[Rfam]
A member of the RNA family "Glycine riboswitch aptamer" from a Sphingomonadaceae bacterium, 106 nucleotides long. It scores 46 bits against the family's covariance model. Clan: Glycine riboswitch clan. About the family: This family represents the bacterial glycine riboswitch. The pairing is the family consensus, mapped onto this sequence.
RNA sequence: UAGCGGCGAUCUGGAAAGUGGGCACGGCUACGGUCGAUGCCCCACCGAAGGGGUAAGCCGGCACACCCGGUCAAAGCUCUCAGGUGCAAGUGACAGACGGGGACGC
Numbered sequence: 001u002a003g004c005g006g007c008g009a010u011c012u013g014g015a016a017a018g019u020g021g022g023c024a025c026g027g028c029u030a031c032g033g034u035c036g037a038u039g040c041c042c043c044a045c046c047g048a049a050g051g052g053g054u055a056a057g058c059c060g061g062c063a064c065a066c067c068c069g070g071u072c073a074a075a076g077c078u079c080u081c082a083g084g085u086g087c088a089a090g091u092g093a094c095a096g097a098c099g100g101g102g103a104c105g106c
Base pairs, nucleotide, nucleotide: 007100010097011096012095013094020042021041022040023039044085045084046083047081048080051079052078053077057072